Shown here is a 102-nucleotide sequence from Bacillus sp. FJAT-27231, a member of the family "TPP riboswitch aptamer (THI element)". It scores 64 bits against the family's covariance model.

[Rfam]
RNA sequence: CAAGUCCACUAGGGGUGUCGUUAGACUGAGAGAGGAGUGAUCCUCAACUCUAAGAACCUGAUCUGGUUAGUACCAGCGUAGGGAACGUGUGACAGAUACGGG
Numbered sequence: 001c002a003a004g005u006c007c008a009c010u011a012g013g014g015g016u017g018u019c020g021u022u023a024g025a026c027u028g029a030g031a032g033a034g035g036a037g038u039g040a041u042c043c044u045c046a047a048c049u050c051u052a053a054g055a056a057c058c059u060g061a062u063c064u065g066g067u068u069a070g071u072a073c074c075a076g077c078g079u080a081g082g083g084a085a086c087g088u089g090u091g092a093c094a095g096a097u098a099c100g101g102g
Stems, first nucleotide, its partner, number of pairs: 007089003011051004017026003033044004057082004063076004
The source organism's lineage runs through Bacteria, Bacillati, Bacillota, Bacillaceae and Bacillus.